[Rfam]
RNA sequence: CAAGCAUUAAAUUUUUUACUUGAAUUAUUGACAUAAAAUAACUGCUUAUAAAUUAAGGAAGAAUUUUUCGAAGGGUGAAUAUUGCGUAAGUAAAUUUUGUGUAACCACAUGAAUUUU
Numbered sequence: 001c002a003a004g005c006a007u008u009a010a011a012u013u014u015u016u017u018a019c020u021u022g023a024a025u026u027a028u029u030g031a032c033a034u035a036a037a038a039u040a041a042c043u044g045c046u047u048a049u050a051a052a053u054u055a056a057g058g059a060a061g062a063a064u065u066u067u068u069c070g071a072a073g074g075g076u077g078a079a080u081a082u083u084g085c086g087u088a089a090g091u092a093a094a095u096u097u098u099g100u101g102u103a104a105c106c107a108c109a110u111g112a113a114u115u116u117u
Stems, first nucleotide, its partner, number of pairs: 005070001009066008019057004025051004032044002074083003092117003096113005
Rfam assigns this 117-nucleotide sequence from Aggregatibacter aphrophilus to the family "Aggregatibacter sRNA JA02". The family's consensus secondary structure was predicted with RNAfold. Taxonomically the source falls in Aggregatibacter aphrophilus (Bacteria, Pseudomonadati, Pseudomonadota, Pasteurellaceae). By type it is a small RNA.